[Rfam]
RNA sequence: AAACCAAACCUCUCACUACGGAUCGUUCGGCACGUACCUGCCGAUGAAAGGAAUGAAUA
Numbered sequence: 001a002a003a004c005c006a007a008a009c010c011u012c013u014c015a016c017u018a019c020g021g022a023u024c025g026u027u028c029g030g031c032a033c034g035u036a037c038c039u040g041c042c043g044a045u046g047a048a049a050g051g052a053a054u055g056a057a058u059a
Base pairs, nucleotide, nucleotide: 009051010050011049013047014046015045027044028043029042030041031040032039
RNA: msiK RNA
Organism: Bifidobacterium dolichotidis